Shown here is a 398-nucleotide sequence from Roseibium suaedae, a member of the family "Bacterial RNase P class A".

[Rfam]
RNA sequence: CCAGUUGGCCGGACAGCCGCUGCCGCAAGUGCCGAAAGGCCGCGGGGGAGGAAAGUCCGGGCUCCAAGGAAACACGGUGCCGGGUAACGCCCGGCGGGGGCGACCCUAGGGAAAGUGCCACAGAAAGCAAACCGCCCCGGACCUGUCCGGGGUAAGGGUGAAAGGGUGGGGUAAGAGCCCACCGCGCGGACGGUAACGGACGCGGCACGGUAAACCCCACCGGGAGCAAAACCGAAUAGGGGUGGCGCGGGCGCUUGACGCCCAGGCCGGUUUCCAGGCCAGUCACCCGGGUUGGUUGCGAGAGGCGUCCGGCAACGGCCGUCCCAGAUGAAUGGCUGUCGCGUGCGGAUCUUCGGGUCCGUGCCAUACAGAACCCGGCUUACAGGCCAACUGGCAUU
Numbered sequence: 001c002c003a004g005u006u007g008g009c010c011g012g013a014c015a016g017c018c019g020c021u022g023c024c025g026c027a028a029g030u031g032c033c034g035a036a037a038g039g040c041c042g043c044g045g046g047g048g049a050g051g052a053a054a055g056u057c058c059g060g061g062c063u064c065c066a067a068g069g070a071a072a073c074a075c076g077g078u079g080c081c082g083g084g085u086a087a088c089g090c091c092c093g094g095c096g097g098g099g100g101c102g103a104c105c106c107u108a109g110g111g112a113a114a115g116u117g118c119c120a121c122a123g124a125a126a127g128c129a130a131a132c133c134g135c136c137c138c139g140g141a142c143c144u145g146u147c148c149g150g151g152g153u154a155a156g157g158g159u160g161a162a163a164g165g166g167u168g169g170g171g172u173a174a175g176a177g178c179c180c181a182c183c184g185c186g187c188g189g190a191c192g193g194u195a196a197c198g199g200a201c202g203c204g205g206c207a208c209g210g211u212a213a214a215c216c217c218c219a220c221c222g223g224g225a226g227c228a229a230a231a232c233c234g235a236a237u238a239g240g241g242g243u244g245g246c247g248c249g250g251g252c253g254c255u256u257g258a259c260g261c262c263c264a265g266g267c268c269g270g271u272u273u274c275c276a277g278g279c280c281a282g283u284c285a286c287c288c289g290g291g292u293u294g295g296u297u298g299c300g301a302g303a304g305g306c307g308u309c310c311g312g313c314a315a316c317g318g319c320c321g322u323c324c325c326a327g328a329u330g331a332a333u334g335g336c337u338g339u340c341g342c343g344u345g346c347g348g349a350u351c352u353u354c355g356g357g358u359c360c361g362u363g364c365c366a367u368a369c370a371g372a373a374c375c376c377g378g379c380u381u382a383c384a385g386g387c388c389a390a391c392u393g394g395c396a397u398u
Stems, first nucleotide, its partner, number of pairs: 001394010011383001012340007020048002023045004053381003057378005062226004071273002075222005080094005095109001096107004110217002115215002117211003132157002134153008165183006184206001185204004191198002230297004240288006265280004304323004309318003
Description: By type it is a ribozyme. NCBI's taxonomy places the organism under Bacteria, Pseudomonadati, Pseudomonadota, Stappiaceae, Roseibium. The family's consensus secondary structure is taken from published work.